[Rfam]
RNA sequence: AUUUACUCGUUUACCUGUUAUUAAUCUUUCCAAAUUAUAAACAGAGGUAUCCAGUCAUCUGGAUGUGAGUGGCUCCUGUCCACUCUGUUUGACGCCUCCCUGUUAAAGACUCAGAGCCGCAACCAAGCGGCUCUUUUUUU
Numbered sequence: 001a002u003u004u005a006c007u008c009g010u011u012u013a014c015c016u017g018u019u020a021u022u023a024a025u026c027u028u029u030c031c032a033a034a035u036u037a038u039a040a041a042c043a044g045a046g047g048u049a050u051c052c053a054g055u056c057a058u059c060u061g062g063a064u065g066u067g068a069g070u071g072g073c074u075c076c077u078g079u080c081c082a083c084u085c086u087g088u089u090u091g092a093c094g095c096c097u098c099c100c101u102g103u104u105a106a107a108g109a110c111u112c113a114g115a116g117c118c119g120c121a122a123c124c125a126a127g128c129g130g131c132u133c134u135u136u137u138u139u140u
Stems, first nucleotide, its partner, number of pairs: 002045003005018002022037004027032001050063004067085006091104004113134008
A member of the RNA family "Alphaproteobacterial sRNA BjrC1505" from Roseibium aggregatum, 140 nucleotides long. For this family Rfam cites "Small RNAs of the Bradyrhizobium/Rhodopseudomonas lineage and their analysis" (Madhugiri et al., RNA Biol, 2012).